[Rfam]
RNA sequence: GGAGUGUUAUCAUAAUAGUAAUUGAACUUAGUAUGAGAGGAACCGUUUAUUUAGAUAUUUGGUAUUUGCACCUGUCCAAUUGGGCAAUGGCACAAAGCUAUCAUCUGCUGGAUUAUGGCUGAAUGCCUCUAAGUCAGAAUCCGUGCUAGAAACAAUGAUGUUGGUCCCACACAUGUGACUUGAGUUGAGAUAGAGCUUUGCUUGUAUACCAAAUUAGGUGGACUGGGUCGCUAUGGUAGAAAUGCUGUGGUGGCUUGUUUGCAAAUUGCAAUCAUAAUAUGGGCAGGAGUGAAUCCUUUGCAGAUGACUUGAAUGAGAAUGGGGUACUGUAAGCAGUAGAGUAGCCUUGUUGCUAUAAUCUGCUGAAGUUAAGCCCUUGUUCUAUAGAUUUGU
Numbered sequence: 001g002g003a004g005u006g007u008u009a010u011c012a013u014a015a016u017a018g019u020a021a022u023u024g025a026a027c028u029u030a031g032u033a034u035g036a037g038a039g040g041a042a043c044c045g046u047u048u049a050u051u052u053a054g055a056u057a058u059u060u061g062g063u064a065u066u067u068g069c070a071c072c073u074g075u076c077c078a079a080u081u082g083g084g085c086a087a088u089g090g091c092a093c094a095a096a097g098c099u100a101u102c103a104u105c106u107g108c109u110g111g112a113u114u115a116u117g118g119c120u121g122a123a124u125g126c127c128u129c130u131a132a133g134u135c136a137g138a139a140u141c142c143g144u145g146c147u148a149g150a151a152a153c154a155a156u157g158a159u160g161u162u163g164g165u166c167c168c169a170c171a172c173a174u175g176u177g178a179c180u181u182g183a184g185u186u187g188a189g190a191u192a193g194a195g196c197u198u199u200g201c202u203u204g205u206a207u208a209c210c211a212a213a214u215u216a217g218g219u220g221g222a223c224u225g226g227g228u229c230g231c232u233a234u235g236g237u238a239g240a241a242a243u244g245c246u247g248u249g250g251u252g253g254c255u256u257g258u259u260u261g262c263a264a265a266u267u268g269c270a271a272u273c274a275u276a277a278u279a280u281g282g283g284c285a286g287g288a289g290u291g292a293a294u295c296c297u298u299u300g301c302a303g304a305u306g307a308c309u310u311g312a313a314u315g316a317g318a319a320u321g322g323g324g325u326a327c328u329g330u331a332a333g334c335a336g337u338a339g340a341g342u343a344g345c346c347u348u349g350u351u352g353c354u355a356u357a358a359u360c361u362g363c364u365g366a367a368g369u370u371a372a373g374c375c376c377u378u379g380u381u382c383u384a385u386a387g388a389u390u391u392g393u
Base pairs, nucleotide, nucleotide: 006159007158008157009156010155013152016148017147018146019145021051023049024048025047026046027045052107053106054105055104056103060100061099062098067094068093071090073086074085075084076083077082109143110142111141116136117135118134119133120132166287167286170283172281291391292390293389294388295387297311300308316383317382318381319380320379321378322376323375324374326369327368333363334362335361336360338359341356342355343354344353345352

The family of this 393-nucleotide part of an RNA from Leucoagaricus sp. SymC.cos is "Eukaryotic large subunit ribosomal RNA". The base pairs follow the family's consensus structure, which is taken from published work.